[Rfam]
RNA sequence: UUCUUAUCCAGAGCGGUGGAGGGACUGGCCCCAUGAAACCGCGGCAACCACCCUGUCAAGGGAAAGGUGCCAACUCCUGCGGGGGUAACCCCGGAAGAUGAGAA
Numbered sequence: 001u002u003c004u005u006a007u008c009c010a011g012a013g014c015g016g017u018g019g020a021g022g023g024a025c026u027g028g029c030c031c032c033a034u035g036a037a038a039c040c041g042c043g044g045c046a047a048c049c050a051c052c053c054u055g056u057c058a059a060g061g062g063a064a065a066g067g068u069g070c071c072a073a074c075u076c077c078u079g080c081g082g083g084g085g086u087a088a089c090c091c092c093g094g095a096a097g098a099u100g101a102g103a104a
Stems, first nucleotide, its partner, number of pairs: 001104008013042005021031003025079001027077002043071004048067002051062003075096001080093005
Description
SAM riboswitch aptamer (S box leader): a 104-nucleotide sequence from Melghirimyces profundicolus. The source organism's lineage runs through Bacteria, Bacillati, Bacilli, Caryophanales and Melghirimyces.